Annotation: The record is a 74-nucleotide sequence from Jaculus jaculus, which matches "Small nucleolar RNA SNORD73" in Rfam. The family has 25 seed sequences and 769 matches in Rfam 15.1. The organism belongs to Jaculus, within Eukaryota. The family's consensus secondary structure was predicted with PFOLD.

RNA sequence: AAUGAAUGAUGACCAAAUGUUUCGGUCCCAAAUGACAUGUGCUGAUUAUACCGUUAACAUUUACUUCUGACAUU
Numbered sequence: 001a002a003u004g005a006a007u008g009a010u011g012a013c014c015a016a017a018u019g020u021u022u023c024g025g026u027c028c029c030a031a032a033u034g035a036c037a038u039g040u041g042c043u044g045a046u047u048a049u050a051c052c053g054u055u056a057a058c059a060u061u062u063a064c065u066u067c068u069g070a071c072a073u074u
Stems, first nucleotide, its partner, number of pairs: 001074004
A search with the family's covariance model found it, with a score of 76 bits.